[Rfam]
Nucleotides: 076
Stems, first nucleotide, its partner, number of pairs: 014059005022051004029044004
Number, partner (000 for none) and nucleotide at each position: 001000a002000a003000a004000a005000a006000a007000a008000u009000a010000g011000g012000c013000c014059u015058u016057c017056u018055c019000u020000u021000c022051c023050c024049a025048g026000u027000u028000c029044u030043u031042c032041c033000c034000a035000g036000a037000g038000u039000c040000a041032g042031g043030a044029a045000a046000a047000g048025c049024u050023g051022g052000c053000u054000u055018g056017a057016g058015a059014g060000g061000a062000a063000g064000a065000a066000a067000a068000a069000a070000a071000g072000u073000c074000c075000u076000u